[Rfam]
trpB ncRNA motif: a 118-nucleotide RNA sequence from Liquorilactobacillus satsumensis. trpB ncRNA motif was reported as a strong cis regulatory motif candidate, with potential to be a cis regulatory riboswitch type, it have been identified in Firmicutes and Fusobacteria. The motif have been recognised upstream of an uncharacterized ABC transporter with strong homology to amino acid transporters. Rfam's curators put it in the seed alignment. By type it is a cis-regulatory element. On this family, see Narunsky et al., Nucleic Acids Res 2024: "The discovery of novel noncoding RNAs in 50 bacterial genomes".

RNA sequence: AGCGUAGACUUACUUUAAUUCUUUGGUGUUAAAGAGAGUCUAUGCCGGUAUGAUGAUCCCAGUACAACGGAUAAUUACUCAACCGCGUAGUCUAUACACUAUGCGGUUUUUUGUUUCU
Numbered sequence: 001a002g003c004g005u006a007g008a009c010u011u012a013c014u015u016u017a018a019u020u021c022u023u024u025g026g027u028g029u030u031a032a033a034g035a036g037a038g039u040c041u042a043u044g045c046c047g048g049u050a051u052g053a054u055g056a057u058c059c060c061a062g063u064a065c066a067a068c069g070g071a072u073a074a075u076u077a078c079u080c081a082a083c084c085g086c087g088u089a090g091u092c093u094a095u096a097c098a099c100u101a102u103g104c105g106g107u108u109u110u111u112u113g114u115u116u117c118u
Stems, first nucleotide, its partner, number of pairs: 002045010013034007082107010